Description:
The family of this 116-nucleotide RNA from Pongo abelii is "U5 spliceosomal RNA". NCBI's taxonomy places the organism under Eukaryota, Dipnotetrapodomorpha, Tetrapoda, Boreoeutheria, Pongo. The match comes from Rfam's covariance-model search (76 bits). The literature on the family includes a 1997 paper in Nucleic Acids Res by Zwieb, "The uRNA database". It is annotated as a spliceosomal small nuclear RNA. Rfam links the family to the GO terms spliceosomal tri-snRNP complex assembly and U5 snRNP.
[Rfam]
RNA sequence: UAACUCUUGUUUCUCUGCAGAUCAUAUAAAUCUUUCAUUUUUUACUAAAGAUUUCCGUGGGGAGGAACAGUUAUGAGUCUUUUUCCAGUUUCUGAGGCCUCGUGUUUCACGAGGCU
Numbered sequence: 001u002a003a004c005u006c007u008u009g010u011u012u013c014u015c016u017g018c019a020g021a022u023c024a025u026a027u028a029a030a031u032c033u034u035u036c037a038u039u040u041u042u043u044a045c046u047a048a049a050g051a052u053u054u055c056c057g058u059g060g061g062g063a064g065g066a067a068c069a070g071u072u073a074u075g076a077g078u079c080u081u082u083u084u085c086c087a088g089u090u091u092c093u094g095a096g097g098c099c100u101c102g103u104g105u106u107u108c109a110c111g112a113g114g115c116u
Base pairs, nucleotide, nucleotide: 003078004077005076006075009068010067011066012065013064014063015062016061018059019058028054029053030052031051032050033049034048035047096116097115098114099113100112101111102110